[Rfam]
mir-1302 microRNA precursor family: a 52-nucleotide sequence from Myotis brandtii.
For this family Rfam cites "Application of massively parallel sequencing to microRNA profiling and discovery in human embryonic stem cells" (Morin et al., Genome Res, 2008).
Lineage of the source: Eukaryota > Amniota > Mammalia > Chiroptera > Myotis.
Pairs were carried over by alignment from the consensus structure, which was predicted with WAR.
Nucleotides: 052
Stems, first nucleotide, its partner, number of pairs: 006048007014040003018036004
Number, partner (000 for none) and nucleotide at each position: 001000u002000u003000u004000u005000u006048a007047g008046u009045g010044u011043a012042a013000g014040u015039a016038u017000g018036u019035c020034u021033c022000c023000u024000g025000u026000a027000a028000u029000a030000u031000a032000u033021g034020g035019g036018a037000c038016a039015u040014a041000c042012u043011u044010a045009u046008a047007c048006u049000a050000g051000a052000a